The record is a 129-nucleotide sequence from Nothobranchius furzeri, which matches "Small nucleolar RNA SNORD22" in Rfam.
[Rfam]
RNA sequence: UUCUCAUGAUGACACCUGCACACGUCCGACGCCUUGGGUCAAUGCCAGAACCUGAAAAGGUGAACCCACUGGUGUUGCCAUGGUAACAAGGGGACAGCUUGUUGGGGUUACCAACAGUCUGAAUAGAAA
Number, nucleotide and partner (000 for none) at each position: 001u128002u127003c126004u125005c000006a000007u000008g000009a000010u000011g000012a000013c000014a000015c000016c000017u000018g000019c000020a000021c000022a000023c000024g000025u000026c000027c000028g000029a000030c000031g000032c000033c000034u000035u000036g000037g000038g000039u000040c000041a000042a000043u000044g000045c000046c000047a000048g000049a000050a000051c000052c000053u000054g000055a000056a000057a000058a000059g000060g000061u000062g000063a000064a000065c000066c000067c000068a000069c000070u000071g000072g000073u000074g000075u000076u000077g000078c000079c000080a000081u000082g000083g000084u000085a000086a000087c000088a000089a000090g000091g000092g000093g000094a000095c000096a000097g000098c000099u000100u000101g000102u000103u000104g000105g000106g000107g000108u000109u000110a000111c000112c000113a000114a000115c000116a000117g000118u000119c000120u000121g000122a000123a000124u000125a004126g003127a002128a001129a000

Taxonomically the source falls in Nothobranchius (Eukaryota, Bilateria, Vertebrata, Cyprinodontiformes). Rfam links the family to the GO terms RNA processing and nucleolus. Pairs were carried over by alignment from the consensus structure, which was predicted with PFOLD. Rfam classes the family as a C/D-box small nucleolar RNA.